[Rfam]
About this RNA
Rfam assigns this 68-nucleotide sequence from Propithecus coquereli to the family "Small nucleolar RNA SNORD77". Lineage of the source: Eukaryota > Opisthokonta > Eumetazoa > Strepsirrhini > Propithecus. Rfam classes the family as a C/D-box small nucleolar RNA. Gene Ontology terms of the family: nucleolus and RNA processing.
RNA sequence: GUACUAUGUUGGCUGCCUAGUUCAACAGAUUGAAUCAAGAAGAGAUUUACCAUUUGUCUGAUGUACAU
Numbered sequence: 001g002u003a004c005u006a007u008g009u010u011g012g013c014u015g016c017c018u019a020g021u022u023c024a025a026c027a028g029a030u031u032g033a034a035u036c037a038a039g040a041a042g043a044g045a046u047u048u049a050c051c052a053u054u055u056g057u058c059u060g061a062u063g064u065a066c067a068u
Base pairs, nucleotide, nucleotide: 001066002065003064004063007037008036010034013028014027015026043055044054045053046052